[Rfam]
RNA sequence: AUUAGAUAAAUAAUUUGACUUCGUAUAACUCUAACGAUAUGGGUUAGGGGUAUCUACCAGGGACCAAUAAUUCCUGAUUACGAAGAGAAUGCACCUAGGU
Number, nucleotide and partner (000 for none) at each position: 001a000002u000003u000004a000005g000006a000007u000008a000009a000010a000011u000012a000013a000014u000015u000016u000017g000018a000019c085020u084021u083022c082023g081024u080025a079026u000027a000028a000029c049030u048031c047032u046033a045034a044035c043036g000037a000038u000039a000040u000041g000042g000043g035044u034045u033046a032047g031048g030049g029050g000051u000052a000053u000054c000055u000056a000057c000058c076059a075060g074061g073062g072063a071064c000065c000066a000067a000068u000069a000070a000071u063072u062073c061074c060075u059076g058077a000078u000079u025080a024081c023082g022083a021084a020085g019086a000087g000088a000089a000090u000091g000092c000093a000094c000095c000096u000097a000098g000099g000100u000
RNA: Purine riboswitch aptamer